[Rfam]
RNA sequence: UGGACAUCUACUUUAUUCAGUUUCUUCUUAAGGUGAAGAAAACUCUUUGUACAUGUCUAGAGAAAUAUAGUAGCUUUCUGUUCACACUUUGCAAGUAAAAAGGGUGGAUUGAUCCACUACUGACAAUA
Numbered sequence: 001u002g003g004a005c006a007u008c009u010a011c012u013u014u015a016u017u018c019a020g021u022u023u024c025u026u027c028u029u030a031a032g033g034u035g036a037a038g039a040a041a042a043c044u045c046u047u048u049g050u051a052c053a054u055g056u057c058u059a060g061a062g063a064a065a066u067a068u069a070g071u072a073g074c075u076u077u078c079u080g081u082u083c084a085c086a087c088u089u090u091g092c093a094a095g096u097a098a099a100a101a102g103g104g105u106g107g108a109u110u111g112a113u114c115c116a117c118u119a120c121u122g123a124c125a126a127u128a
Stems, first nucleotide, its partner, number of pairs: 003057005009051003019044004023039005068122006087102004
RNA: Small Cajal body specific RNA 24
Organism: Pipistrellus kuhlii